A member of the RNA family "Nitrogen stress-induced RNA 4" from Crinalium epipsammum, 62 nucleotides long. From the family's description: Former name SyR12, is a cyanobacterial non-coding RNA which plays role in the regulation of Glutamine synthetase (GS), a key enzyme in biological nitrogen assimilation. Its family is annotated with posttranscriptional regulation of gene expression in the Gene Ontology. The family's RNA type in Rfam is small RNA.

Nucleotides: 062
Base pairs, nucleotide, nucleotide: 002010003009037061038060039059040058041057042056043055
Number, partner (000 for none) and nucleotide at each position: 001000a002010a003009c004000g005000u006000a007000a008000g009003g010002u011000a012000u013000u014000g015000a016000u017000a018000c019000c020000c021000u022000c023000c024000g025000a026000u027000u028000g029000c030000u031000u032000a033000a034000g035000a036000c037061g038060a039059c040058c041057g042056c043055c044000c045000u046000c047000u048000u049000u050000c051000u052000a053000g054000u055043g056042g057041c058040g059039g060038u061037u062000u